Notes: Shown here is a 172-nucleotide RNA sequence from Brevibacillus sp. SYP-B805, a member of the family "glmS glucosamine-6-phosphate activated ribozyme aptamer". Rfam classes the family as a riboswitch.
Nucleotides: 172
Base pairs, nucleotide, nucleotide: 020049021048022047023046024045025044026043029040058090059089060088061087062086067079068078069077070076091112092111093110094109095108096107116162117161118160119159120158121157122156130147131146132145133144134143135142136141
Number, partner (000 for none) and nucleotide at each position: 001000u002000u003000u004000u005000u006000c007000a008000c009000g010000a011000a012000a013000g014000c015000g016000c017000c018000a019000g020049c021048a022047c023046u024045g025044c026043g027000g028000c029040u030000g031000c032000c033000c034000g035000c036000c037000a038000u039000g040029g041000a042000g043026c044025g045024c046023a047022g048021u049020g050000g051000a052000c053000g054000a055000g056000g057000u058090g059089g060088a061087g062086g063000u064000u065000u066000a067079u068078c069077g070076a071000a072000u073000u074000g075000u076070u077069c078068g079067g080000c081000g082000g083000a084000u085000g086062c087061c088060u089059c090058c091112c092111g093110g094109u095108a096107g097000c098000g099000g100000c101000g102000g103000a104000u105000c106000a107096c108095u109094a110093c111092c112091g113000u114000u115000u116162g117161g118160c119159a120158c121157a122156g123000g124000a125000c126000a127000a128000a129000g130147c131146a132145g133144c134143g135142g136141g137000g138000c139000g140000a141136c142135c143134c144133g145132u146131u147130g148000g149000a150000c151000a152000a153000a154000g155000c156122c157121u158120g159119u160118g161117u162116c163000a164000u165000g166000a167000c168000c169000c170000g171000c172000a
Rfam describes the family as follows. This entry contains a glucosamine-6-phosphate activated ribozyme that is found in the mRNA for GlmS. GlmS is an enzyme that uses fructose-6-phosphate and glutamine to generate glucosamine-6-phosphate. The source organism's lineage runs through Bacteria, Bacillati, Bacillota, Caryophanales and Brevibacillus.